The family of this 200-nucleotide RNA from Medicago truncatula is "MIR2619 microRNA precursor family". NCBI's taxonomy places the organism under Eukaryota, Spermatophyta, rosids, Trifolieae, Medicago.

[Rfam]
RNA sequence: AAACAGUCCCCUAUGUAUUGGAUCUUUGGCAGUUUUGGCCCCCAAGGCCACUUUUGAUUUAGUCUUCGCUGACGUGGCACCCAUAUCCCUUAAGCAAGGUGCCACGUGUCCACCAUUGUGGGUACCACGUCAGCGAAGACUAAUCAAAAGUGGCAUUGGGGGCCAAAAUUGUCAAAGAUCCAAUACAUAAGUGGUUGUUU
Numbered sequence: 001a002a003a004c005a006g007u008c009c010c011c012u013a014u015g016u017a018u019u020g021g022a023u024c025u026u027u028g029g030c031a032g033u034u035u036u037g038g039c040c041c042c043c044a045a046g047g048c049c050a051c052u053u054u055u056g057a058u059u060u061a062g063u064c065u066u067c068g069c070u071g072a073c074g075u076g077g078c079a080c081c082c083a084u085a086u087c088c089c090u091u092a093a094g095c096a097a098g099g100u101g102c103c104a105c106g107u108g109u110c111c112a113c114c115a116u117u118g119u120g121g122g123u124a125c126c127a128c129g130u131c132a133g134c135g136a137a138g139a140c141u142a143a144u145c146a147a148a149a150g151u152g153g154c155a156u157u158g159g160g161g162g163c164c165a166a167a168a169u170u171g172u173c174a175a176a177g178a179u180c181c182a183a184u185a186c187a188u189a190a191g192u193g194g195u196u197g198u199u200u
Base pairs, nucleotide, nucleotide: 001200002199004197005196006195007194008193012189013188014187015186016185017184018183019182020181021180022179023178024177025176026175027174028173029172030171031170032169033168034167035166036165037164038163039162040161041160042159043158044157045156072130073129075127076126077125079123080122081121082120083119084118085117